RNA sequence: CGCUUAUAGAGAAAGGCCGAGGGAAUAGACCCGCUGAAGCCUUAGCAACCUGUCACUAGACAAGGUGCUACAUUCUACUCCGGAUAAGCUGGGGAAAGAUAAGCU
Number, nucleotide and partner (000 for none) at each position: 001c000002g104003c103004u102005u101006a100007u099008a000009g000010a000011g000012a000013a043014a042015g041016g040017c039018c000019g000020a000021g032022g031023g030024a000025a000026u077027a076028g075029a074030c023031c022032c021033g000034c000035u000036g000037a000038a000039g017040c016041c015042u014043u013044a069045g068046c067047a066048a000049c065050c064051u062052g061053u060054c059055a000056c000057u000058a000059g054060a053061c052062a051063a000064g050065g049066u047067g046068c045069u044070a000071c000072a000073u097074u029075c028076u027077a026078c094079u093080c092081c091082g090083g089084a000085u000086a000087a000088g000089c083090u082091g081092g080093g079094g078095a000096a000097a073098g000099a007100u006101a005102a004103g003104c002105u000